[Rfam]
RNA sequence: CUCUUAUCAAGAGUGGUGGAGGGACUGGCCCUUUGAAGCCCGACAACCGGCAUUAAUUUAAAUGUAUCGGUGUUAAUUCCUACAGGUGUGUAAUAUUUUGAAAGAUGAGAA
Numbered sequence: 001c002u003c004u005u006a007u008c009a010a011g012a013g014u015g016g017u018g019g020a021g022g023g024a025c026u027g028g029c030c031c032u033u034u035g036a037a038g039c040c041c042g043a044c045a046a047c048c049g050g051c052a053u054u055a056a057u058u059u060a061a062a063u064g065u066a067u068c069g070g071u072g073u074u075a076a077u078u079c080c081u082a083c084a085g086g087u088g089u090g091u092a093a094u095a096u097u098u099u100g101a102a103a104g105a106u107g108a109g110a111a
Stems, first nucleotide, its partner, number of pairs: 002110007013041001015040003021031003027080002042074004047070002050065003078103001083100004
Shown here is a 111-nucleotide RNA from Clostridium pasteurianum, a member of the family "SAM riboswitch aptamer (S box leader)". The base pairs follow the family's consensus structure, which is taken from published work. The source organism's lineage runs through Bacteria, Bacillota, Eubacteriales, Clostridiaceae and Clostridium pasteurianum. It scores 79 bits against the family's covariance model.